[Rfam]
RNA sequence: UAAGGAUUAGUUUAAUUGGAAAAACGAAGAGCUUUGACUUCUUCUGCUUGGGUCCAUUCCCCACUCCUUAA
Numbered sequence: 001u002a003a004g005g006a007u008u009a010g011u012u013u014a015a016u017u018g019g020a021a022a023a024a025c026g027a028a029g030a031g032c033u034u035u036g037a038c039u040u041c042u043u044c045u046g047c048u049u050g051g052g053u054c055c056a057u058u059c060c061c062c063a064c065u066c067c068u069u070a071a
Base pairs, nucleotide, nucleotide: 001070002069003068004067005066006065010025011024012023013022027043028042029041030040031039049063050062051061052060
RNA: tRNA